Shown here is a 212-nucleotide RNA from Candida albicans, a member of the family "U2 spliceosomal RNA". The organism belongs to Candida albicans, within Eukaryota. Pairs were carried over by alignment from the consensus structure, which is taken from published work.
[Rfam]
RNA sequence: AUCUCUUUGCCUUUUGGCUUAGAUCCAGUGUAGUAUCUGUUCUUUUCAGUGUAACAACUGAAAUGUCAUCAUUGAUGACUUUACAUUUAUGUUACAAAUUUAUUUAUUUUUGGAUAUUGGGUAGAUUGAUUUAUUAAAGUGGGCUUGCUCACAGUCUUUCUACAUAGUGUCGUUGCCACUGUACUUUUAUUUUGGCUUCUGACGCAAAUUUU
Numbered sequence: 001a002u003c004u005c006u007u008u009g010c011c012u013u014u015u016g017g018c019u020u021a022g023a024u025c026c027a028g029u030g031u032a033g034u035a036u037c038u039g040u041u042c043u044u045u046u047c048a049g050u051g052u053a054a055c056a057a058c059u060g061a062a063a064u065g066u067c068a069u070c071a072u073u074g075a076u077g078a079c080u081u082u083a084c085a086u087u088u089a090u091g092u093u094a095c096a097a098a099u100u101u102a103u104u105u106a107u108u109u110u111u112g113g114a115u116a117u118u119g120g121g122u123a124g125a126u127u128g129a130u131u132u133a134u135u136a137a138a139g140u141g142g143g144c145u146u147g148c149u150c151a152c153a154g155u156c157u158u159u160c161u162a163c164a165u166a167g168u169g170u171c172g173u174u175g176c177c178a179c180u181g182u183a184c185u186u187u188u189a190u191u192u193u194g195g196c197u198u199c200u201g202a203c204g205c206a207a208a209u210u211u212u
Base pairs, nucleotide, nucleotide: 004023005022006021009018010017011016044063045062046061047060048059049058065079066078067077068076069075070074121163122162123161124160125159128156140151141150142149143148167205168204169203170202171201172200175196176195177194178193